The record is an 84-nucleotide sequence from Papillibacter cinnamivorans, which matches "c-di-GMP-I riboswitch aptamer" in Rfam. Taxonomically the source falls in Papillibacter cinnamivorans (Bacteria, Bacillati, Bacillota, Oscillospiraceae). A search with the family's covariance model found it, with a score of 81 bits. Gene Ontology term of the family: cyclic-di-GMP binding.
RNA sequence: AAUUGAUAAAGGCAAACCUGUUGAAAAGCAGGGACGCAAAAUCAAGGGUCUAAAGCCGCAAGGCUAUGACAGCCGGUUGCCAAA
Numbered sequence: 001a002a003u004u005g006a007u008a009a010a011g012g013c014a015a016a017c018c019u020g021u022u023g024a025a026a027a028g029c030a031g032g033g034a035c036g037c038a039a040a041a042u043c044a045a046g047g048g049u050c051u052a053a054a055g056c057c058g059c060a061a062g063g064c065u066a067u068g069a070c071a072g073c074c075g076g077u078u079g080c081c082a083a084a
Base pairs, nucleotide, nucleotide: 012037013036017032018031019030020029021028022027040078041077042076043075046074047073048070049069050068055064056063057062